[Rfam]
RNA: Eukaryotic large subunit ribosomal RNA, nucleotides 919 to 1432
RNA sequence: CUCUCCGAAAUUUUCUCAGGAUAGCUGUGUUCGUAAAAAGUUCAUAUUUUAAAGCGAAUGAUUAGAGAUCUGUGCUCAGAUUGGGUGCAUACUAUUCUCAAACUUUAAACACGUGAGAUAUGUGGCUCACUUGAUUGGAGGCACAUAUAGAAUUAGAGUACCAAGUGGGCCAAUUAUGGUAAUCAUGACUGGCGCUGUGGGAUGAACCAAACGUCUAGUUAAGGUGCCUGACUAGACGCACACAGGAUACCAUGAAAAGUGUCAGUUGAUUAUGACAACUGGAAGGUGACCAUAGAAGUCGGAAUCCUCUAAGGAGUGUGUAAUAACUCACCUGUCGAAUUAACUGGCCUUGAAAAUGGAUGGCGCUGUAGCGUUUGACCUAUACUAGGCCGUUGUAGCAGUUUGACUGGCUUUGGCUAGUGAGAAAAGAUAGGCUACGACGAGUAGGAGAGACGUGGCGGUAGCAUGGAAGCCAAGCAUGUGAAUGCUGGUAGAGCUGUUCGCUAGUGCAGAU
Dot-bracket structure: ((((((....(.(((...))).)..((...(.........(((((.(....(((....(((..(.((...(((((.(.....).)))))..)).)..)))..)).)....).)))))..(((((.(((.........))).)))))...........)...)).....((((.(((((.....))))).))))....(((......)))...(((((.(...(((......(.(..(((.................(((.((((((((((.......((.((.(((...((.........))...)))(...)(...((......)).).)).))...)))))))))))))...................)))..)))))...).)))))(((((((((..................................)))))))))....)))))).(.((((((((((......((....(((....)))...))...)))).))))))..).....